[Rfam]
RNA sequence: GCUGAAGAAAUGAUGUUAACAAAAGGCCGAAUUGUAGCUCUUCCAUCAAGAUGUUCUUGUUCUGGAAUGAGCUUUGACAAAAACUGGACUGAAGCGUUGAACUGAUCUGUCAGC
Numbered sequence: 001g002c003u004g005a006a007g008a009a010a011u012g013a014u015g016u017u018a019a020c021a022a023a024a025g026g027c028c029g030a031a032u033u034g035u036a037g038c039u040c041u042u043c044c045a046u047c048a049a050g051a052u053g054u055u056c057u058u059g060u061u062c063u064g065g066a067a068u069g070a071g072c073u074u075u076g077a078c079a080a081a082a083a084c085u086g087g088a089c090u091g092a093a094g095c096g097u098u099g100a101a102c103u104g105a106u107c108u109g110u111c112a113g114c
Stems, first nucleotide, its partner, number of pairs: 001114005007107002015102003026035002036098003042092002046087003053072002056069001058067001060065001073083001

This 114-nucleotide RNA sequence from Danionella cerebrum belongs to the Rfam family "Small nucleolar RNA SNORD89". The literature on the family includes a 2001 paper in EMBO J by Huttenhofer et al., "RNomics: an experimental approach that identifies 201 candidates for novel, small, non-messenger RNAs in mouse". The base pairs follow the family's consensus structure, which was predicted with RNAalifold. snoRNA HBII-289 belongs to the family of C/D snoRNAs. It is the human orthologue of the mouse MBII-289 and has no identified RNA target. Taxonomically the source falls in Danionella (Eukaryota, Actinopteri, Ostariophysi, Danioninae). The family's RNA type in Rfam is C/D-box small nucleolar RNA.